[Rfam]
The family of this 54-nucleotide RNA from Anguilla anguilla is "UnaL2 LINE 3' element". About the family: The eel long interspersed element (LINE) UnaL2 and its partner short interspersed element (SINE) share a conserved 3' tail containing a stem-loop that is critical for their retrotransposition.
RNA sequence: AUGUCACAGCUGUGCAAGUCGCUCUGGAUAAGAGCGUCUGCUAAACGCCUGUAA
Numbered sequence: 001a002u003g004u005c006a007c008a009g010c011u012g013u014g015c016a017a018g019u020c021g022c023u024c025u026g027g028a029u030a031a032g033a034g035c036g037u038c039u040g041c042u043a044a045a046c047g048c049c050u051g052u053a054a
Stems, first nucleotide, its partner, number of pairs: 013043001014041003020036006
Dot-bracket structure: ............((((...((((((.....))))))..))).)...........